[Rfam]
RNA: Plant signal recognition particle RNA
Organism: Hibiscus syriacus
RNA sequence: GCUGAGCUUUGUAACGGGAGCUUGUGACCUAAGUGGGGGAACUAGGAUUGUGGAACAUGGGUUUGGCUCUCUGAGUUGGAUCACACGUGGCUUUGUAAUAUCUUGCCCAUUUCAAGCCAAGAUUUGAGUCAUGGGACCUCAGUGAAAACUGUGGGUGUCGUGGCUCCUAGAGCGAAGGGCGUUGCGUAAGGUUGGUUUCAUAGAGCAGCGAAGACCUUCCUGUAUUGGUAGUGGGAGGAUAACAAUCUUGAUCCACUAAGAUCCAGCAUGUCCCAUCAUGACCCACUGUGUCGGCCUUAACUGGACCAUCAUCUUU
Numbered sequence: 001g002c003u004g005a006g007c008u009u010u011g012u013a014a015c016g017g018g019a020g021c022u023u024g025u026g027a028c029c030u031a032a033g034u035g036g037g038g039g040a041a042c043u044a045g046g047a048u049u050g051u052g053g054a055a056c057a058u059g060g061g062u063u064u065g066g067c068u069c070u071c072u073g074a075g076u077u078g079g080a081u082c083a084c085a086c087g088u089g090g091c092u093u094u095g096u097a098a099u100a101u102c103u104u105g106c107c108c109a110u111u112u113c114a115a116g117c118c119a120a121g122a123u124u125u126g127a128g129u130c131a132u133g134g135g136a137c138c139u140c141a142g143u144g145a146a147a148a149c150u151g152u153g154g155g156u157g158u159c160g161u162g163g164c165u166c167c168u169a170g171a172g173c174g175a176a177g178g179g180c181g182u183u184g185c186g187u188a189a190g191g192u193u194g195g196u197u198u199c200a201u202a203g204a205g206c207a208g209c210g211a212a213g214a215c216c217u218u219c220c221u222g223u224a225u226u227g228g229u230a231g232u233g234g235g236a237g238g239a240u241a242a243c244a245a246u247c248u249u250g251a252u253c254c255a256c257u258a259a260g261a262u263c264c265a266g267c268a269u270g271u272c273c274c275a276u277c278a279u280g281a282c283c284c285a286c287u288g289u290g291u292c293g294g295c296c297u298u299a300a301c302u303g304g305a306c307c308a309u310c311a312u313c314u315u316u
Stems, first nucleotide, its partner, number of pairs: 002039002004023007028037003044315005050309004056303002058300001060298001061296001063294004069288001072285002075282003078274002082270002086266001088265003100248001103245003107238002110236005116229005122223002126166009136156004140151004167172001174219005183212001185210003192203003